[Rfam]
RNA sequence: GUCACAGGUGGCGCGGCACUUCAAUCACGAAGCGCAGCGCCGAAAAACGCAGUACCUAACGAAGACGGUAAUAAG
Numbered sequence: 001g002u003c004a005c006a007g008g009u010g011g012c013g014c015g016g017c018a019c020u021u022c023a024a025u026c027a028c029g030a031a032g033c034g035c036a037g038c039g040c041c042g043a044a045a046a047a048c049g050c051a052g053u054a055c056c057u058a059a060c061g062a063a064g065a066c067g068g069u070a071a072u073a074a075g
Base pairs, nucleotide, nucleotide: 009042010041011040012039013038014037016035017034019032020031021030022029
About this RNA: This 75-nucleotide RNA sequence from Pseudomonas rhizosphaerae belongs to the Rfam family "sucC RNA". The family's RNA type in Rfam is cis-regulatory element. The match comes from Rfam's covariance-model search (73 bits). The source organism's lineage runs through Bacteria, Pseudomonadati, Pseudomonadota, Pseudomonadaceae and Pseudomonas.